MIR6152 microRNA precursor family: a 96-nucleotide RNA sequence from Nicotiana sylvestris.
The match comes from Rfam's covariance-model search (91 bits).
The source organism's lineage runs through Eukaryota, Viridiplantae, Streptophyta, Nicotianeae and Nicotiana.
[Rfam]
RNA sequence: UGGACAGAUUAUUGUAUUCGACUGUAUUUACGGUGUGAAACAAGAGAUUACACUGUUUUUAAACGGAAAAUAUAUCAAUUAACAUAAUAGACUCCU
Numbered sequence: 001u002g003g004a005c006a007g008a009u010u011a012u013u014g015u016a017u018u019c020g021a022c023u024g025u026a027u028u029u030a031c032g033g034u035g036u037g038a039a040a041c042a043a044g045a046g047a048u049u050a051c052a053c054u055g056u057u058u059u060u061a062a063a064c065g066g067a068a069a070a071u072a073u074a075u076c077a078a079u080u081a082a083c084a085u086a087a088u089a090g091a092c093u094c095c096u
Stems, first nucleotide, its partner, number of pairs: 002095003009090007017082002020080002023077002026075002029072002034065003037059006

Gene Ontology terms of the family: miRNA-mediated post-transcriptional gene silencing and RISC complex.